Description: Shown here is a 95-nucleotide RNA from Triticum aestivum, a member of the family "Small nucleolar RNA Z119". The family has 6 seed sequences and 93 matches in Rfam 15.1. Taxonomically the source falls in Triticum (Eukaryota, Embryophyta, commelinids, Pooideae). The family's consensus secondary structure was predicted with PFOLD.

RNA sequence: CCGUGGAGAUGAUGAAUAUCAGAGGCUGUUUCUGAGGAUGAGCCUAGAGCUCUUCAUAUGCUGCAAAAUAACUGAUUUACCUAUCUGAUCCAAAG
Numbered sequence: 001c002c003g004u005g006g007a008g009a010u011g012a013u014g015a016a017u018a019u020c021a022g023a024g025g026c027u028g029u030u031u032c033u034g035a036g037g038a039u040g041a042g043c044c045u046a047g048a049g050c051u052c053u054u055c056a057u058a059u060g061c062u063g064c065a066a067a068a069u070a071a072c073u074g075a076u077u078u079a080c081c082u083a084u085c086u087g088a089u090c091c092a093a094a095g
Base pairs, nucleotide, nucleotide: 004092005091006090007089040052041051042050043049063080065078066077067076